[Rfam]
RNA sequence: AUUCCCGUUGUGGGAGCACCGCUUGGCGGUGUCGCGGCUGCUUUAGCACAUGGUGUUAGGGCAAUCGAAGACGGGAUCAACUAUGCAACCGGAAACCUUCCUGGUUGCUCCUU
Numbered sequence: 001a002u003u004c005c006c007g008u009u010g011u012g013g014g015a016g017c018a019c020c021g022c023u024u025g026g027c028g029g030u031g032u033c034g035c036g037g038c039u040g041c042u043u044u045a046g047c048a049c050a051u052g053g054u055g056u057u058a059g060g061g062c063a064a065u066c067g068a069a070g071a072c073g074g075g076a077u078c079a080a081c082u083a084u085g086c087a088a089c090c091g092g093a094a095a096c097c098u099u100c101c102u103g104g105u106u107g108c109u110c111c112u113u
Stems, first nucleotide, its partner, number of pairs: 001077005007072003013033002016030002019026002035067003039063011085108005091102002

The record is a 113-nucleotide sequence from Orthohepacivirus hominis, which matches "J750 non-coding RNA (containing SLSL761 and SL783)" in Rfam.